[Rfam]
RNA sequence: GGAAGUAUGGUACCAUUUGACUGCAGUAAAGUUUGUGACGGUGGCUAUCUUUGAAAGGUGGUGGUGCUUAUGAAUGUAAGUACUAACUCUUCAGAAAGGAGAAGCCUUUUUGUCCACAGCGGAAGCAAUCGGGCUAAUGAUCAGUUUUGGUACAUUUACCGCCAUGCUGAUCUUUGGUAUCCU
Numbered sequence: 001g002g003a004a005g006u007a008u009g010g011u012a013c014c015a016u017u018u019g020a021c022u023g024c025a026g027u028a029a030a031g032u033u034u035g036u037g038a039c040g041g042u043g044g045c046u047a048u049c050u051u052u053g054a055a056a057g058g059u060g061g062u063g064g065u066g067c068u069u070a071u072g073a074a075u076g077u078a079a080g081u082a083c084u085a086a087c088u089c090u091u092c093a094g095a096a097a098g099g100a101g102a103a104g105c106c107u108u109u110u111u112g113u114c115c116a117c118a119g120c121g122g123a124a125g126c127a128a129u130c131g132g133g134c135u136a137a138u139g140a141u142c143a144g145u146u147u148u149g150g151u152a153c154a155u156u157u158a159c160c161g162c163c164a165u166g167c168u169g170a171u172c173u174u175u176g177g178u179a180u181c182c183u
Base pairs, nucleotide, nucleotide: 041153042152043151045149060092061091062085063084064083066081067080110132111131112130117125158178159177160176164175166173